The family of this 144-nucleotide RNA from Polaromonas sp. JS666 is "Group II catalytic intron D1-D4-7".

[Rfam]
RNA sequence: CCACGUCUGGAACGACGUGACCUCGACCGUACGUGCGUCUGGAGUAAUCCGGGGGUGCGGAGCUACGGUUAAACAACCCGUGCGCAAGCACACAAGGCUGACGUGAGUCAGUCCCAAUCCCACGAACAAGACGCGGGAAGGUUG
Numbered sequence: 001c002c003a004c005g006u007c008u009g010g011a012a013c014g015a016c017g018u019g020a021c022c023u024c025g026a027c028c029g030u031a032c033g034u035g036c037g038u039c040u041g042g043a044g045u046a047a048u049c050c051g052g053g054g055g056u057g058c059g060g061a062g063c064u065a066c067g068g069u070u071a072a073a074c075a076a077c078c079c080g081u082g083c084g085c086a087a088g089c090a091c092a093c094a095a096g097g098c099u100g101a102c103g104u105g106a107g108u109c110a111g112u113c114c115c116a117a118u119c120c121c122a123c124g125a126a127c128a129a130g131a132c133g134c135g136g137g138a139a140g141g142u143u144g
Stems, first nucleotide, its partner, number of pairs: 002019006027068005032059005038053006080091004096113002101108002119137003123133002
Annotation:
A reference for the family is Bonen and Vogel (2001), "The ins and outs of group II introns", Trends Genet. Rfam's curators put it in the seed alignment. Rfam describes the family as follows. Group II introns are found in rRNA, tRNA and mRNA of organelles in fungi, plants and protists, and also in mRNA in bacteria. Taxonomically the source falls in Polaromonas (Bacteria, Pseudomonadati, Pseudomonadota, Comamonadaceae).